[Rfam]
RNA sequence: AGCUUUGCACAGUGGCCGUAUCAUAGCCAGUGAGGUUUAUCCCAGGCAUGAUUAUUGCUAAUUGAAAACUCUUUCCAAAAAUGGAUCCAAGAUGAAACCAAUUUAUUUCCAUCUUGAAUCACCAUGAUGGAGUUUCUAGAUAUAA
Numbered sequence: 001a002g003c004u005u006u007g008c009a010c011a012g013u014g015g016c017c018g019u020a021u022c023a024u025a026g027c028c029a030g031u032g033a034g035g036u037u038u039a040u041c042c043c044a045g046g047c048a049u050g051a052u053u054a055u056u057g058c059u060a061a062u063u064g065a066a067a068a069c070u071c072u073u074u075c076c077a078a079a080a081a082u083g084g085a086u087c088c089a090a091g092a093u094g095a096a097a098c099c100a101a102u103u104u105a106u107u108u109c110c111a112u113c114u115u116g117a118a119u120c121a122c123c124a125u126g127a128u129g130g131a132g133u134u135u136c137u138a139g140a141u142a143u144a145a
Stems, first nucleotide, its partner, number of pairs: 020052005026047003034042002084120003088116007095108002
A member of the RNA family "U4 spliceosomal RNA" from Fukomys damarensis, 145 nucleotides long. The base pairs follow the family's consensus structure, which is taken from published work. Its Rfam clan is "U4 clan". U4 small nuclear RNA (U4 snRNA) is a component of the major U2-dependent spliceosome.